Rfam assigns this 83-nucleotide RNA from Pseudothauera lacus to the family "Group II catalytic intron D1-D4-1". From the family's description: Group II introns are found in rRNA, tRNA and mRNA of organelles in fungi, plants and protists, and also in mRNA in bacteria. Taxonomically the source falls in Pseudothauera (Bacteria, Pseudomonadati, Betaproteobacteria, Zoogloeaceae).
RNA sequence: CCUUAUGGCUGAAAGGCCGACGUGGAGGCACGGAGCGAGGAGUCAGCAGCGGCCAUAGUAGCUGCCAGUAGGGAGCGAAGGGC
Numbered sequence: 001c002c003u004u005a006u007g008g009c010u011g012a013a014a015g016g017c018c019g020a021c022g023u024g025g026a027g028g029c030a031c032g033g034a035g036c037g038a039g040g041a042g043u044c045a046g047c048a049g050c051g052g053c054c055a056u057a058g059u060a061g062c063u064g065c066c067a068g069u070a071g072g073g074a075g076c077g078a079a080g081g082g083c
Base pairs, nucleotide, nucleotide: 001024003022006019007018008017009016010015044049052083053082054081061076062075063074065072066071